[Rfam]
The family of this 95-nucleotide sequence from Tigriopus californicus is "mir-276 microRNA precursor family". NCBI's taxonomy places the organism under Eukaryota, Ecdysozoa, Arthropoda, Harpacticoida, Tigriopus. The family has 42 seed sequences and 200 matches in Rfam 15.1.
RNA sequence: UAAUGACUUGGUCUCUAGCGAGGUAUAGAGUUCCUACGAAUUUGGUUCAUUCAUACCCAGUAGGAACUUCAUACCGUGCUCUUGACUGGGCUCAU
Numbered sequence: 001u002a003a004u005g006a007c008u009u010g011g012u013c014u015c016u017a018g019c020g021a022g023g024u025a026u027a028g029a030g031u032u033c034c035u036a037c038g039a040a041u042u043u044g045g046u047u048c049a050u051u052c053a054u055a056c057c058c059a060g061u062a063g064g065a066a067c068u069u070c071a072u073a074c075c076g077u078g079c080u081c082u083u084g085a086c087u088g089g090g091c092u093c094a095u
Base pairs, nucleotide, nucleotide: 012085013084017080018079019078020077022075023074024073025072026071028069029068030067031066032065033064034063035062036061037060